[Rfam]
RNA: TPP riboswitch aptamer (THI element)
RNA sequence: ACCCCGCCCGAGGGGAGCCCCGACGAGGGGGCUGAGAGGCUGCGCGAUCCGCGGCGACCCUUGAACCUGAUCCGGGUCAUGCCGGCGGAGGAAUGGGGAUGCACGGACAA
Numbered sequence: 001a002c003c004c005c006g007c008c009c010g011a012g013g014g015g016a017g018c019c020c021c022g023a024c025g026a027g028g029g030g031g032c033u034g035a036g037a038g039g040c041u042g043c044g045c046g047a048u049c050c051g052c053g054g055c056g057a058c059c060c061u062u063g064a065a066c067c068u069g070a071u072c073c074g075g076g077u078c079a080u081g082c083c084g085g086c087g088g089a090g091g092a093a094u095g096g097g098g099a100u101g102c103a104c105g106g107a108c109a110a
Base pairs, nucleotide, nucleotide: 007097008096009095010094011061012060013059014058017032018031019030020029021028039055040054041053042052043051066091067090068089072085073084074083075082